RNA sequence: CGGGCAGGACGACCUGCUCCAUCACGACCAAUUUCCGGGACGACCCGG
Numbered sequence: 001c002g003g004g005c006a007g008g009a010c011g012a013c014c015u016g017c018u019c020c021a022u023c024a025c026g027a028c029c030a031a032u033u034u035c036c037g038g039g040a041c042g043a044c045c046c047g048g
Stems, first nucleotide, its partner, number of pairs: 002019007035048005
Guanidine-II riboswitch aptamer (mini-ykkC): a 48-nucleotide RNA from Maricaulis salignorans. The base pairs follow the family's consensus structure, which is taken from published work. Simpler in structure and has fewer highly conserved nucleotide positions than the ykkC-yxkD leader. Despite this each of its two stem-loop structures directly bind free guanidine.